Notes:
MIR5269 microRNA precursor family: an 80-nucleotide RNA sequence from Medicago truncatula.
[Rfam]
RNA sequence: UUGGAUGAAAUCCAUGUAGGACCUACACUUUGAAAAUAAAACUCAUAUAAAAUGGUGAAACAUAUAUUGAUUUCACUCAA
Numbered sequence: 001u002u003g004g005a006u007g008a009a010a011u012c013c014a015u016g017u018a019g020g021a022c023c024u025a026c027a028c029u030u031u032g033a034a035a036a037u038a039a040a041a042c043u044c045a046u047a048u049a050a051a052a053u054g055g056u057g058a059a060a061c062a063u064a065u066a067u068u069g070a071u072u073u074c075a076c077u078c079a080a
Base pairs, nucleotide, nucleotide: 001080002079003078004077006075007074008073009072010071011070012069014067015066016065017064018063024057025056026054027053029051030050031049032048
Rfam 15.1 lists 389 matches to the family in 6 species. Rfam links the family to the GO terms RISC complex and miRNA-mediated post-transcriptional gene silencing.